mir-96 microRNA precursor family: a 78-nucleotide sequence from Astyanax mexicanus. The family has 29 seed sequences and 691 matches in Rfam 15.1. It scores 92 bits against the family's covariance model.
RNA sequence: UUGCCUCUUUUGGCACUAGCACAUUUUUGCUUCUGUAUAUAUCUUUUGAGCAAUUAUGUGUAGUGCCAAUAAAGGACA
Numbered sequence: 001u002u003g004c005c006u007c008u009u010u011u012g013g014c015a016c017u018a019g020c021a022c023a024u025u026u027u028u029g030c031u032u033c034u035g036u037a038u039a040u041a042u043c044u045u046u047u048g049a050g051c052a053a054u055u056a057u058g059u060g061u062a063g064u065g066c067c068a069a070u071a072a073a074g075g076a077c078a
Stems, first nucleotide, its partner, number of pairs: 004075003008071001010069008019061006027053006